[Rfam]
RNA sequence: ACUCACCACCUUCCACUACGGAUCGUCCGGCACGUUCCUGCCGGUGAAGGGGGCUUCAC
Numbered sequence: 001a002c003u004c005a006c007c008a009c010c011u012u013c014c015a016c017u018a019c020g021g022a023u024c025g026u027c028c029g030g031c032a033c034g035u036u037c038c039u040g041c042c043g044g045u046g047a048a049g050g051g052g053g054c055u056u057c058a059c
Base pairs, nucleotide, nucleotide: 009051010050011049012048014046015045027044028043029042030041031040032039
RNA: msiK RNA